[Rfam]
RNA sequence: CCACAAAACAAGCCGAAGCUCAUCAGAGCGCGGGGGAACCGAUUCAUUGGGGUGAAGUCGUGUAGCGACAGGGGAGUCCACUUUAACCCGAACCCGACAGCUAACCUCGCAGGCUGCAAAGGGAGAGAUG
Numbered sequence: 001c002c003a004c005a006a007a008a009c010a011a012g013c014c015g016a017a018g019c020u021c022a023u024c025a026g027a028g029c030g031c032g033g034g035g036g037a038a039c040c041g042a043u044u045c046a047u048u049g050g051g052g053u054g055a056a057g058u059c060g061u062g063u064a065g066c067g068a069c070a071g072g073g074g075a076g077u078c079c080a081c082u083u084u085a086a087c088c089c090g091a092a093c094c095c096g097a098c099a100g101c102u103a104a105c106c107u108c109g110c111a112g113g114c115u116g117c118a119a120a121g122g123g124a125g126a127g128a129u130g
Stems, first nucleotide, its partner, number of pairs: 011115004018029003030110006040049002050095003058068004071089003
Rfam assigns this 130-nucleotide RNA sequence from Paenibacillus sp. KS1 to the family "c-di-AMP riboswitch aptamer (ydaO/yuaA leader)". The base pairs follow the family's consensus structure. A search with the family's covariance model found it, with a score of 99 bits.